Overview: The family of this 102-nucleotide RNA from Delphinapterus leucas is "Small Cajal body specific RNA 23". For this family Rfam cites "Cajal body-specific small nuclear RNAs: a novel class of 2'-O-methylation and pseudouridylation guide RNAs" (Darzacq et al., EMBO J, 2002). Rfam's curators write: scaRNAs are a specific class of small nuclear RNAs which localise to the Cajal bodies and guide the modification of RNA polymerase II transcribed spliceosomal RNAs U1, U2, U4, U5 and U12. ACA11 belongs to the H/ACA box class of guide RNAs as it has the predicted hairpin-hinge-hairpin-tail structure,the conserved H/ACA-box motifs and is found associated with GAR1. H/ACA snRNAs are predicted to guide the modification of uridines to pseudouridines in substrate RNAs however, no target RNA has been identified for scaRNA ACA11. Lineage of the source: Eukaryota > Opisthokonta > Theria > Monodontidae > Delphinapterus. The family's consensus secondary structure was predicted with RNAfold.
RNA sequence: CCGCUCACCAGCGCUCGGUCCCUCCGUGAGCAAGAGAAACAGGACUGGUUUGGGGGCGUCCCAUCUGAGUGGACCUGGGAAGCCACGGCUCUCAGUACAACA
Numbered sequence: 001c002c003g004c005u006c007a008c009c010a011g012c013g014c015u016c017g018g019u020c021c022c023u024c025c026g027u028g029a030g031c032a033a034g035a036g037a038a039a040c041a042g043g044a045c046u047g048g049u050u051u052g053g054g055g056g057c058g059u060c061c062c063a064u065c066u067g068a069g070u071g072g073a074c075c076u077g078g079g080a081a082g083c084c085a086c087g088g089c090u091c092u093c094a095g096u097a098c099a100a101c102a
Stems, first nucleotide, its partner, number of pairs: 003031006013020001042098001044096005050088003055084003059080004064073003